[Rfam]
RNA sequence: UCUUGGCACAGGGCUGAAUUGCGGGAGGACUUAUAUGAUUCUACCCCUUUUCAUUUUUAUACUGCUUUGGAG
Numbered sequence: 001u002c003u004u005g006g007c008a009c010a011g012g013g014c015u016g017a018a019u020u021g022c023g024g025g026a027g028g029a030c031u032u033a034u035a036u037g038a039u040u041c042u043a044c045c046c047c048u049u050u051u052c053a054u055u056u057u058u059a060u061a062c063u064g065c066u067u068u069g070g071a072g
Base pairs, nucleotide, nucleotide: 005066006065007064008060010058011057012056013055015053016052017051018050021047023046024045025044026042027041028040029039030037
Rfam assigns this 72-nucleotide RNA from Haemonchus placei to the family "mir-5890 microRNA precursor family". Lineage of the source: Eukaryota > Eumetazoa > Chromadorea > Strongyloidea > Haemonchus. Rfam 15.1 lists 40 matches to the family in 2 species.